Shown here is a 35-nucleotide RNA from Esox lucius, a member of the family "Iron response element I". Rfam 15.1 lists 6,829 matches to the family in 599 species. The family's consensus secondary structure is taken from published work. A search with the family's covariance model found it, with a score of 43 bits. Rfam classes the family as a cis-regulatory element.

[Rfam]
RNA sequence: AAGUUUCUUGCUUCAACAGUGAUUGAACGGAGCUC
Numbered sequence: 001a002a003g004u005u006u007c008u009u010g011c012u013u014c015a016a017c018a019g020u021g022a023u024u025g026a027a028c029g030g031a032g033c034u035c
Stems, first nucleotide, its partner, number of pairs: 002034004007030002010028001012027005017021001